[Rfam]
RNA sequence: UGCUUAAAGAUAAAAGGUAUACGUUUAUUUCACAUAUUAAAAGUCAAAAAUUACCCCAUUAUGCCGCCUAACGCGUUUCAUGCUUACCUAGCACUUAAUCAUAGAUUGAAAUAAACGUAUACCUUUUAUCUUUAAGCA
Numbered sequence: 001u002g003c004u005u006a007a008a009g010a011u012a013a014a015a016g017g018u019a020u021a022c023g024u025u026u027a028u029u030u031c032a033c034a035u036a037u038u039a040a041a042a043g044u045c046a047a048a049a050a051u052u053a054c055c056c057c058a059u060u061a062u063g064c065c066g067c068c069u070a071a072c073g074c075g076u077u078u079c080a081u082g083c084u085u086a087c088c089u090a091g092c093a094c095u096u097a098a099u100c101a102u103a104g105a106u107u108g109a110a111a112u113a114a115a116c117g118u119a120u121a122c123c124u125u126u127u128a129u130c131u132u133u134a135a136g137c138a
Stems, first nucleotide, its partner, number of pairs: 003136005009130003013126002017122005024115009
The record is a 138-nucleotide RNA sequence from Xenopus laevis, which matches "mir-965 microRNA precursor family" in Rfam. Rfam 15.1 lists 224 matches to the family in 178 species. A search with the family's covariance model found it, with a score of 44 bits. Its family is annotated with RISC complex and miRNA-mediated post-transcriptional gene silencing in the Gene Ontology. Taxonomically the source falls in Xenopus (Eukaryota, Metazoa, Deuterostomia, Tetrapoda).